This 139-nucleotide sequence from Triticum aestivum belongs to the Rfam family "Small nucleolar RNA snoR74". A reference for the family is Marker et al. (2002), "Experimental RNomics: identification of 140 candidates for small non-messenger RNAs in the plant Arabidopsis thaliana", Curr Biol. Taxonomically the source falls in Triticum (Eukaryota, Viridiplantae, Streptophytina, Petrosaviidae). Rfam 15.1 lists 1,404 matches to the family in 223 species.
[Rfam]
RNA sequence: AAAAAAGCAGGAUGCUUUGCUUUCUAUAAGCAGUGUCCCCGUAAUCUCUAGGAAUAUCAUUUUCAUUGUUUUUGGGUGAACCAGUGGACACAGUACUUUGUGUUUUAUGUCUAUUGGUUCAGUAAAUGAUGGCACAUUU
Dot-bracket structure: .....((...((.(((...............))).))........))...............((((((((......(((((((((((.......................)))))))))))...)))))))).......